[Rfam]
RNA: Streptomyces RNA 5676
RNA sequence: GGAUGAGAGAAACACACCGCCCACAGGGGACUGCGGGCGGCUCAGGCCGGGGCCUCCCCAGCUUCGACCUGGUCGUGCCUCGCGCACACAACCGGAGCCCGGGGGCUCCGGAUCUCCUCACGAUCGGA
Number, nucleotide and partner (000 for none) at each position: 001g000002g000003a000004u120005g119006a118007g117008a000009g116010a115011a000012a000013c000014a000015c000016a000017c040018c039019g038020c037021c036022c035023a000024c033025a032026g031027g000028g000029g000030a000031c026032u025033g024034c000035g022036g021037g020038c019039g018040g017041c000042u072043c071044a070045g069046g068047c000048c066049g065050g064051g063052g062053c061054c000055u000056c000057c000058c000059c000060a000061g053062c052063u051064u050065c049066g048067a000068c046069c045070u044071g043072g042073u000074c000075g087076u086077g085078c084079c000080u000081c000082g000083c000084g078085c077086a076087c075088a000089c000090a000091a000092c111093c110094g109095g108096a107097g106098c105099c104100c000101g000102g000103g000104g099105g098106c097107u096108c095109c094110g093111g092112a000113u000114c000115u010116c009117c007118u006119c005120a004121c126122g000123a000124u000125c000126g121127g000128a000